RNA sequence: GGAUGUGAGGGCGAUCUGGCUGCGACAUCUGUCACCCCAUUGAUCGCCAGGGUUGAUUCGGCUGAUCUGGCUGGCUAGGCGGGUGUCCCCUUCCUCCCUCACCGCUCCAUGUGCGUCCCUCCCGAAGCUGCGUGUUCGAUCGAAGAGGACGACCAUCCCCGAUAGAGGAGGACUGUUCUUCAGUCAAGGGUAUACGAGUAGCUGCGCUCCCCUGCUAGAACCUCCAAACGAGCUCUCAAGGUCCAGAAAAUAACAUAUCUUAUCAUUGCAUUUAUAUAUGGUUUUAAAUAUAAUUAUUUAUUAGUUAUAU
Number, nucleotide and partner (000 for none) at each position: 001g108002g107003a106004u000005g102006u101007g100008a099009g098010g097011g096012c000013g093014a092015u000016c000017u000018g090019g089020c000021u000022g000023c000024g087025a086026c085027a084028u083029c082030u081031g080032u079033c078034a000035c074036c073037c070038c069039a068040u000041u000042g067043a066044u065045c064046g062047c061048c060049a000050g000051g000052g000053u000054u000055g000056a000057u000058u000059c000060g048061g047062c046063u000064g045065a044066u043067c042068u039069g038070g037071c000072u000073g036074g035075c000076u000077a000078g033079g032080c031081g030082g029083g028084u027085g026086u025087c024088c000089c019090c018091u000092u014093c013094c000095u000096c011097c010098c009099u008100c007101a006102c005103c000104g000105c000106u003107c002108c001109a000110u000111g000112u000113g000114c000115g000116u171117c170118c168119c167120u166121c165122c000123c138124g137125a136126a000127g135128c134129u000130g000131c000132g000133u000134g128135u127136u125137c124138g123139a000140u162141c161142g160143a000144a000145g000146a000147g158148g157149a156150c000151g000152a000153c000154c000155a000156u149157c148158c147159c000160c142161g141162a140163u000164a000165g121166a120167g119168g118169a000170g117171g116172a000173c000174u000175g000176u000177u000178c000179u000180u000181c000182a000183g000184u000185c000186a000187a000188g000189g000190g000191u000192a000193u000194a000195c000196g000197a000198g000199u000200a000201g264202c000203u262204g000205c000206g000207c000208u257209c000210c000211c000212c000213u255214g254215c000216u000217a000218g000219a000220a000221c000222c000223u248224c000225c246226a000227a000228a000229c000230g000231a000232g000233c000234u000235c000236u000237c000238a000239a000240g000241g000242u000243c000244c000245a000246g225247a000248a223249a000250a000251u000252a000253a000254c214255a213256u000257a208258u000259c000260u000261u000262a203263u000264c201265a000266u000267u000268g000269c000270a000271u000272u000273u000274a000275u000276a000277u000278a000279u000280g000281g000282u000283u000284u307285u000286a306287a000288a000289u000290a000291u303292a302293a301294u300295u000296a000297u000298u000299u000300a294301u293302u292303a291304g000305u000306u286307a284308u000309a000310u000
Rfam assigns this 310-nucleotide sequence from Sus scrofa to the family "7SK RNA". Lineage of the source: Eukaryota > Eumetazoa > Teleostomi > Tetrapoda > Sus. The match comes from Rfam's covariance-model search (269 bits). The family's consensus secondary structure is taken from published work. Clan: 7SK clan. The family's RNA type in Rfam is non-coding RNA gene. The family has 45 seed sequences and 49,373 matches in Rfam 15.1.